[Rfam]
RNA sequence: UUGGCGGUGUAGUCCCAGAUGGUGUCGUCCUCGACGAGUACCCGGUCGCCGAACAUCUCCCCGUCGGCGAGUACGCCGAUGCUGACCGGGUCGCCGUACGCGCCGACCCCGAUCUUGUCGACCUUGCCGUGCGCGAUCAGGUACAGGUUGUCGGACAUCGAACCGAACUCGACGAUGACCUGGCCCUGCUCGUACUCCCGCUGGACGAACCGUUCGGCGAUGCCGCGCAGCAGGUCCUCGUCGUCGAUCGCGGCGAGGAUCGCGAUCUCCCGGAGUUCGGCCGGGACGACGUGCACCGACGCGCCGGUGUUGGUGAAGGUGAGCCGGCCGUCCCCCAGCCGGUAUGUCAUCCGGCGGUUCACCCGAUAGGUGCCGCCGCCGACCUCGACCCAGGGCAGCUUGCGCAGCAGCCACCGGGAGGAGAUCUCCUGCAUCUGGGGUACGGAUUUGGUGGUGUGCGCGAGGUUGCGGGCGGCGGCAGUGCUCAGGCUCUGCCG
Numbered sequence: 001u002u003g004g005c006g007g008u009g010u011a012g013u014c015c016c017a018g019a020u021g022g023u024g025u026c027g028u029c030c031u032c033g034a035c036g037a038g039u040a041c042c043c044g045g046u047c048g049c050c051g052a053a054c055a056u057c058u059c060c061c062c063g064u065c066g067g068c069g070a071g072u073a074c075g076c077c078g079a080u081g082c083u084g085a086c087c088g089g090g091u092c093g094c095c096g097u098a099c100g101c102g103c104c105g106a107c108c109c110c111g112a113u114c115u116u117g118u119c120g121a122c123c124u125u126g127c128c129g130u131g132c133g134c135g136a137u138c139a140g141g142u143a144c145a146g147g148u149u150g151u152c153g154g155a156c157a158u159c160g161a162a163c164c165g166a167a168c169u170c171g172a173c174g175a176u177g178a179c180c181u182g183g184c185c186c187u188g189c190u191c192g193u194a195c196u197c198c199c200g201c202u203g204g205a206c207g208a209a210c211c212g213u214u215c216g217g218c219g220a221u222g223c224c225g226c227g228c229a230g231c232a233g234g235u236c237c238u239c240g241u242c243g244u245c246g247a248u249c250g251c252g253g254c255g256a257g258g259a260u261c262g263c264g265a266u267c268u269c270c271c272g273g274a275g276u277u278c279g280g281c282c283g284g285g286a287c288g289a290c291g292u293g294c295a296c297c298g299a300c301g302c303g304c305c306g307g308u309g310u311u312g313g314u315g316a317a318g319g320u321g322a323g324c325c326g327g328c329c330g331u332c333c334c335c336c337a338g339c340c341g342g343u344a345u346g347u348c349a350u351c352c353g354g355c356g357g358u359u360c361a362c363c364c365g366a367u368a369g370g371u372g373c374c375g376c377c378g379c380c381g382a383c384c385u386c387g388a389c390c391c392a393g394g395g396c397a398g399c400u401u402g403c404g405c406a407g408c409a410g411c412c413a414c415c416g417g418g419a420g421g422a423g424a425u426c427u428c429c430u431g432c433a434u435c436u437g438g439g440g441u442a443c444g445g446a447u448u449u450g451g452u453g454g455u456g457u458g459c460g461c462g463a464g465g466u467u468g469c470g471g472g473c474g475g476c477g478g479c480a481g482u483g484c485u486c487a488g489g490c491u492c493u494g495c496c497g
Stems, first nucleotide, its partner, number of pairs: 006390003011385002015381001018328001021325002025322005031316002035313001037311006045305001047303003054233001057230002060227001062225001063223002065111003075103001077102002083096002086093001117221004122217002126213002129210002131206001134203002140196002147191001150189002153186002156183001158178002164174002234296002237293001240290006249283002251280001253278001256277002262269001329342001330340001332338001352378006360372004391431005397425001399423003403418001405416001407415001437476001440473001443470002446467001447465003451461002486497001488495001
Shown here is a 497-nucleotide RNA from Actinoplanes derwentensis, a member of the family "Saccharopolyspora sRNA 350". It scores 140 bits against the family's covariance model.